[Rfam]
RNA sequence: GUCAGCACCCCGUACUGAAGUAACGGGGCUAUGGGCGGAGCGCAGGCUACGCGAAGUCAUGCCUCACUAGAGCGUGAUAGUUGACCAGCCUAAGUGCCUUGUGCACUACGUUUUUUGAGUUAUGACACCCUGUGGAUGCGUAGCUAGUCCCUAGCUCUGUCGUUAGUAGUUAAACAUCUUUAUCGGGUUAAGGAAGUGCUACUAGCCUAACAAGCUCUUAAAACCUUGGCGUUCGCGUAGCGUGUGCGAAGCACUCAGCUAACUUUAC
Numbered sequence: 001g002u003c004a005g006c007a008c009c010c011c012g013u014a015c016u017g018a019a020g021u022a023a024c025g026g027g028g029c030u031a032u033g034g035g036c037g038g039a040g041c042g043c044a045g046g047c048u049a050c051g052c053g054a055a056g057u058c059a060u061g062c063c064u065c066a067c068u069a070g071a072g073c074g075u076g077a078u079a080g081u082u083g084a085c086c087a088g089c090c091u092a093a094g095u096g097c098c099u100u101g102u103g104c105a106c107u108a109c110g111u112u113u114u115u116u117g118a119g120u121u122a123u124g125a126c127a128c129c130c131u132g133u134g135g136a137u138g139c140g141u142a143g144c145u146a147g148u149c150c151c152u153a154g155c156u157c158u159g160u161c162g163u164u165a166g167u168a169g170u171u172a173a174a175c176a177u178c179u180u181u182a183u184c185g186g187g188u189u190a191a192g193g194a195a196g197u198g199c200u201a202c203u204a205g206c207c208u209a210a211c212a213a214g215c216u217c218u219u220a221a222a223a224c225c226u227u228g229g230c231g232u233u234c235g236c237g238u239a240g241c242g243u244g245u246g247c248g249a250a251g252c253a254c255u256c257a258g259c260u261a262a263c264u265u266u267a268c
Stems, first nucleotide, its partner, number of pairs: 001085006007078001009028002011025002014021002088230003092226001093107005110224005117217004125160002129154001132151001134150004138264001141261005162206009174197002177194006

This 268-nucleotide sequence from Planktothrix tepida belongs to the Rfam family "HNH endonuclease-associated RNA and ORF (HEARO) RNA". It scores 128 bits against the family's covariance model.